Annotation: This 164-nucleotide sequence from Alectura lathami belongs to the Rfam family "U1 spliceosomal RNA". From the family's description: U1 is a small nuclear RNA (snRNA) component of the spliceosome (involved in pre-mRNA splicing). Its 5' end forms complementary base pairs with the 5' splice junction, thus defining the 5' donor site of an intron. There are significant differences in sequence and secondary structure between metazoan and yeast U1 snRNAs, the latter being much longer (568 nucleotides as compared to 164 nucleotides in human). A reference for the family is Charenton et al. (2019), "Mechanism of 5' splice site transfer for human spliceosome activation", Science. Pairs were carried over by alignment from the consensus structure, which is taken from published work. NCBI's taxonomy places the organism under Eukaryota, Opisthokonta, Archosauria, Neognathae, Alectura. It scores 107 bits against the family's covariance model. Its Rfam clan is "U1 clan".
RNA sequence: UGGCUAACCUGGCAAGGGAGACACCAGGAUGAGGCCGGUGGUUUUCCCAGGGCGAGGCUCCUCCCCUGCACUCCGGGUGUGCUGACCCCUGCGAUUUCCCCAAAUGUGGGAAACUCGACUGCAUAAUUUGUGGUAGUGGGUGACUAAGUUUGUGCUCUUCCCUG
Numbered sequence: 001u002g003g004c005u006a007a008c009c010u011g012g013c014a015a016g017g018g019a020g021a022c023a024c025c026a027g028g029a030u031g032a033g034g035c036c037g038g039u040g041g042u043u044u045u046c047c048c049a050g051g052g053c054g055a056g057g058c059u060c061c062u063c064c065c066c067u068g069c070a071c072u073c074c075g076g077g078u079g080u081g082c083u084g085a086c087c088c089c090u091g092c093g094a095u096u097u098c099c100c101c102a103a104a105u106g107u108g109g110g111a112a113a114c115u116c117g118a119c120u121g122c123a124u125a126a127u128u129u130g131u132g133g134u135a136g137u138g139g140g141u142g143a144c145u146a147a148g149u150u151u152g153u154g155c156u157c158u159u160c161c162c163u164g
Stems, first nucleotide, its partner, number of pairs: 012122003016048006023042004049090004054086001056083003060079001062077003092117003095113003099109002138162003143158001148153001